Description: Shown here is an 81-nucleotide RNA from Tetrahymena thermophila, a member of the family "tRNA".
[Rfam]
RNA sequence: GAGGUGGUGGCUGAAUGGUUAAAGCGGUAGACUGUAAAUCUAUUGGGAUUCCCGUCGCCGGUUCGAUUCCGGUCCACCUCA
Numbered sequence: 001g002a003g004g005u006g007g008u009g010g011c012u013g014a015a016u017g018g019u020u021a022a023a024g025c026g027g028u029a030g031a032c033u034g035u036a037a038a039u040c041u042a043u044u045g046g047g048a049u050u051c052c053c054g055u056c057g058c059c060g061g062u063u064c065g066a067u068u069c070c071g072g073u074c075c076a077c078c079u080c081a
Stems, first nucleotide, its partner, number of pairs: 001080007010025003027043005057073005
Overview: Its family is annotated with triplet codon-amino acid adaptor activity in the Gene Ontology. The family's RNA type in Rfam is transfer RNA. Transfer RNA (tRNA) molecules are approximately 80 nucleotides in length. It is one of the family's seed sequences.